RNA: Acido-Lenti-1 RNA
RNA sequence: CCCAGGGCUGACACCCUGGGCUACCAUAUCCCGUCCCUUCGGGACU
Numbered sequence: 001c002c003c004a005g006g007g008c009u010g011a012c013a014c015c016c017u018g019g020g021c022u023a024c025c026a027u028a029u030c031c032c033g034u035c036c037c038u039u040c041g042g043g044a045c046u
Stems, first nucleotide, its partner, number of pairs: 001020007033045005